[Rfam]
RNA sequence: UCGCGAGGGAGGGCCCGGGGUCGUGCCCCGGAGGAAAGUCCGGACUCCGCAGGGUGCGGUGGUGGGUAACGCCCACCGUCGGGGAGGCGCCAUCGGCGCCGAGCCGAUAGGGAAAGUGCCACAGAGAAUAGACCGCCGGGGACUCGUCGCGGCCGGCUCGUCCGGCCCGUGAGGGGGCCUCGGUAAGGGUGAAACGGUGAGGUAAGAGCUCACCAGCAGGGCGGGUGACCGCCCUGGCUUGGCAAACCCCACCGGGAGCAAGACCAAAUAGGGGAGCAACGCGAAAGGGCGAAUACGAUGCGGCAACCCCGGGCAACCGGGACUGCCACGGCGGCUUCGCCGUUGCGUGCGGAUCGGCCCGGUCCGUUAUCGACUCCCGGGUAGGUCGCUCGAGGCGUCGGGAGACCGGCGUCCCAGAGAAAUGAUCAUCCCCGGCGGAUCCGGAGCGGUCCAACCGCGACGGCGCCGUCGGGACAGAAUCCGGCUUACGAACCCCGCCACGAG
Numbered sequence: 001u002c003g004c005g006a007g008g009g010a011g012g013g014c015c016c017g018g019g020g021u022c023g024u025g026c027c028c029c030g031g032a033g034g035a036a037a038g039u040c041c042g043g044a045c046u047c048c049g050c051a052g053g054g055u056g057c058g059g060u061g062g063u064g065g066g067u068a069a070c071g072c073c074c075a076c077c078g079u080c081g082g083g084g085a086g087g088c089g090c091c092a093u094c095g096g097c098g099c100c101g102a103g104c105c106g107a108u109a110g111g112g113a114a115a116g117u118g119c120c121a122c123a124g125a126g127a128a129u130a131g132a133c134c135g136c137c138g139g140g141g142a143c144u145c146g147u148c149g150c151g152g153c154c155g156g157c158u159c160g161u162c163c164g165g166c167c168c169g170u171g172a173g174g175g176g177g178c179c180u181c182g183g184u185a186a187g188g189g190u191g192a193a194a195c196g197g198u199g200a201g202g203u204a205a206g207a208g209c210u211c212a213c214c215a216g217c218a219g220g221g222c223g224g225g226u227g228a229c230c231g232c233c234c235u236g237g238c239u240u241g242g243c244a245a246a247c248c249c250c251a252c253c254g255g256g257a258g259c260a261a262g263a264c265c266a267a268a269u270a271g272g273g274g275a276g277c278a279a280c281g282c283g284a285a286a287g288g289g290c291g292a293a294u295a296c297g298a299u300g301c302g303g304c305a306a307c308c309c310c311g312g313g314c315a316a317c318c319g320g321g322a323c324u325g326c327c328a329c330g331g332c333g334g335c336u337u338c339g340c341c342g343u344u345g346c347g348u349g350c351g352g353a354u355c356g357g358c359c360c361g362g363u364c365c366g367u368u369a370u371c372g373a374c375u376c377c378c379g380g381g382u383a384g385g386u387c388g389c390u391c392g393a394g395g396c397g398u399c400g401g402g403a404g405a406c407c408g409g410c411g412u413c414c415c416a417g418a419g420a421a422a423u424g425a426u427c428a429u430c431c432c433c434g435g436c437g438g439a440u441c442c443g444g445a446g447c448g449g450u451c452c453a454a455c456c457g458c459g460a461c462g463g464c465g466c467c468g469u470c471g472g473g474a475c476a477g478a479a480u481c482c483g484g485c486u487u488a489c490g491a492a493c494c495c496c497g498c499c500a501c502g503a504g
Stems, first nucleotide, its partner, number of pairs: 001425002004031001007028003011024001036487003040484005045258004052360004057254005062076005077110001078108004111249002116247002118243003133188002135184007143176003196214006216238001217236008262387004272378005351365005394413008

Rfam assigns this 504-nucleotide RNA sequence from Aquisphaera giovannonii to the family "Bacterial RNase P class A". NCBI's taxonomy places the organism under Bacteria, Pseudomonadati, Planctomycetota, Isosphaerales, Aquisphaera.